A member of the RNA family "c-di-AMP riboswitch aptamer (ydaO/yuaA leader)" from Anaerobium acetethylicum, 133 nucleotides long. Lineage of the source: Bacteria > Bacillati > Lachnospirales > Lachnospiraceae > Anaerobium. Pairs were carried over by alignment from the consensus structure.
Nucleotides: 133
Stems, first nucleotide, its partner, number of pairs: 011118004018026003027113006037046002047098003055071004074092004
Number, partner (000 for none) and nucleotide at each position: 001000a002000a003000c004000a005000u006000a007000u008000u009000a010000a011118u012117g013116c014115u015000g016000a017000a018026u019025c020024a021000u022000u023000u024020u025019g026018a027113a028112c029111g030110g031109g032108a033000g034000a035000a036000u037046c038045a039000a040000u041000u042000u043000u044000u045038u046037g047098g048097g049096g050000u051000g052000a053000a054000u055071c056070u057069u058068g059000u060000a061000a062000g063000a064000a065000u066000u067000a068058u069057a070056a071055g072000u073000a074092g075091g076090g077089u078000u079000a080000a081000u082000u083000u084000c085000u086000c087000g088000u089077a090076c091075c092074c093000g094000a095000a096049u097048c098047c099000g100000u101000c102000a103000g104000u105000u106000a107000a108032u109031c110030u111029c112028g113027u114000a115014a116013g117012c118011a119000u120000c121000u122000a123000a124000g125000a126000g127000a128000a129000g130000u131000u132000u133000u